Shown here is a 413-nucleotide sequence from Castor canadensis, a member of the family "Small Cajal body-specific RNA 2". It is annotated as a small Cajal body RNA. The family has 20 seed sequences and 612 matches in Rfam 15.1. The organism belongs to Castor, within Eukaryota. Rfam links the family to the GO terms RNA processing and nucleolus.
RNA sequence: CCUCCCGGGAGAGAGUGCGGCCACGGGUGGGGUUGUGUGUGUUGAGCUGUGGUGUUGCUUGGCAGGCGCGUGCGGGCCGAGCGUGUGAGUGGACGUGCGUGUGUGCGAGCGUGGGACGUGCAAGGCGAGUGCGUGCGCCCGCCCCUGAGCCCCUCCCCCGCCUACACCUUGAUCUUAUUUGAUCGGGUCGUGACCCCAGCCCCGCCGGGCCGCCCCGAAAUGAAAAGCUUCCCUCCUGCGAAGCCCGGUCUCCGGGCGCUGUGCAGCGAGGCCCCUUGGGCGGCGGCAGUGCCGCGGUUCCCGAGGUCCCGGAGCCGGUCCUGCGGGCCCGGUGCUCAGAAGUGAUGAAUUGAUCAGAUAGACGAGGCCGGGCCUGUCCCGGGCCAGUGAUUAUCGAGGCGAUUCUGAUCUGA
Numbered sequence: 001c002c003u004c005c006c007g008g009g010a011g012a013g014a015g016u017g018c019g020g021c022c023a024c025g026g027g028u029g030g031g032g033u034u035g036u037g038u039g040u041g042u043u044g045a046g047c048u049g050u051g052g053u054g055u056u057g058c059u060u061g062g063c064a065g066g067c068g069c070g071u072g073c074g075g076g077c078c079g080a081g082c083g084u085g086u087g088a089g090u091g092g093a094c095g096u097g098c099g100u101g102u103g104u105g106c107g108a109g110c111g112u113g114g115g116a117c118g119u120g121c122a123a124g125g126c127g128a129g130u131g132c133g134u135g136c137g138c139c140c141g142c143c144c145c146u147g148a149g150c151c152c153c154u155c156c157c158c159c160g161c162c163u164a165c166a167c168c169u170u171g172a173u174c175u176u177a178u179u180u181g182a183u184c185g186g187g188u189c190g191u192g193a194c195c196c197c198a199g200c201c202c203c204g205c206c207g208g209g210c211c212g213c214c215c216c217g218a219a220a221u222g223a224a225a226a227g228c229u230u231c232c233c234u235c236c237u238g239c240g241a242a243g244c245c246c247g248g249u250c251u252c253c254g255g256g257c258g259c260u261g262u263g264c265a266g267c268g269a270g271g272c273c274c275c276u277u278g279g280g281c282g283g284c285g286g287c288a289g290u291g292c293c294g295c296g297g298u299u300c301c302c303g304a305g306g307u308c309c310c311g312g313a314g315c316c317g318g319u320c321c322u323g324c325g326g327g328c329c330c331g332g333u334g335c336u337c338a339g340a341a342g343u344g345a346u347g348a349a350u351u352g353a354u355c356a357g358a359u360a361g362a363c364g365a366g367g368c369c370g371g372g373c374c375u376g377u378c379c380c381g382g383g384c385c386a387g388u389g390a391u392u393a394u395c396g397a398g399g400c401g402a403u404u405c406u407g408a409u410c411u412g413a
Base pairs, nucleotide, nucleotide: 051151052150053149055147056072057071058070060068061067089098101138102137103136106133107132109130110129112127113126178226179225180224183218184217185216186215189212190211192210195209196208197207199205200204249306250305251304252303254301255300256299258298259297260296263295264294266292267291268290271287272286273285274283275282314333315332316331317330318329319327320326321325337412338411339410340409347405348404349403350402351401352400366385367384368383369382371380372379